RNA sequence: CGCGUUUCUGGAGAUGGCAUUCCUCCAAACAACCGCCGAUCCUUCGGCUGAUGAUGCCUACGAGUUC
Numbered sequence: 001c002g003c004g005u006u007u008c009u010g011g012a013g014a015u016g017g018c019a020u021u022c023c024u025c026c027a028a029a030c031a032a033c034c035g036c037c038g039a040u041c042c043u044u045c046g047g048c049u050g051a052u053g054a055u056g057c058c059u060a061c062g063a064g065u066u067c
Base pairs, nucleotide, nucleotide: 010026011025012024013023016058017057018056019055020054021053035048036047037046038045
Record summary:
The record is a 67-nucleotide RNA from Caballeronia sp. SBC1, which matches "Fluoride riboswitch aptamer (crcB RNA motif)" in Rfam. It scores 52 bits against the family's covariance model. The organism belongs to Caballeronia, within Bacteria. Gene Ontology terms of the family: response to fluoride and positive regulation of gene expression. The family's consensus secondary structure is taken from published work.